[Rfam]
The record is a 144-nucleotide RNA sequence from Hibiscus syriacus, which matches "small nucleolar RNA snoR137" in Rfam. The source organism's lineage runs through Eukaryota, Embryophyta, Tracheophyta, Malvoideae and Hibiscus. It scores 122 bits against the family's covariance model. The family's RNA type in Rfam is H/ACA-box small nucleolar RNA.

RNA sequence: GUUGCUUCUUACUGGUGAACGCUCUCAGAUUUAACAGUGAGGGAUGUUCAUGUUUCCGAAGCAUAAAUUAAGAAUCAACCAGUUUUAAACAGCGCCGUGCGUCUUUAUUAUUUUGCACAGUGCUACCUGUCUCCUGGUAUAUGU
Numbered sequence: 001g002u003u004g005c006u007u008c009u010u011a012c013u014g015g016u017g018a019a020c021g022c023u024c025u026c027a028g029a030u031u032u033a034a035c036a037g038u039g040a041g042g043g044a045u046g047u048u049c050a051u052g053u054u055u056c057c058g059a060a061g062c063a064u065a066a067a068u069u070a071a072g073a074a075u076c077a078a079c080c081a082g083u084u085u086u087a088a089a090c091a092g093c094g095c096c097g098u099g100c101g102u103c104u105u106u107a108u109u110a111u112u113u114u115g116c117a118c119a120g121u122g123c124u125a126c127c128u129g130u131c132u133c134c135u136g137g138u139a140u141a142u143g144u
Base pairs, nucleotide, nucleotide: 003063004062005061006060007059008058016050017049018048019047020046022043023042024041025040078138079137080136081135082134091124092123093122095120097118098117099116